[Rfam]
The record is an 86-nucleotide RNA sequence from Dethiosulfatibacter aminovorans, which matches "c-di-GMP-I riboswitch aptamer" in Rfam.

RNA sequence: AGAAUAUUUUGGCAAACUUGUCGAAAGACAAGGACGCAAAGUUUGGAGUCUAAGGCAUUAAUUGCUAUGAUCGUUCAACUGCUGUG
Numbered sequence: 001a002g003a004a005u006a007u008u009u010u011g012g013c014a015a016a017c018u019u020g021u022c023g024a025a026a027g028a029c030a031a032g033g034a035c036g037c038a039a040a041g042u043u044u045g046g047a048g049u050c051u052a053a054g055g056c057a058u059u060a061a062u063u064g065c066u067a068u069g070a071u072c073g074u075u076c077a078a079c080u081g082c083u084g085u086g
Base pairs, nucleotide, nucleotide: 012037013036017032018031019030020029021028022027040080041079042078043077045076046075047074048071049070050069055065056064057063
A search with the family's covariance model found it, with a score of 70 bits. Rfam links the family to the GO term cyclic-di-GMP binding.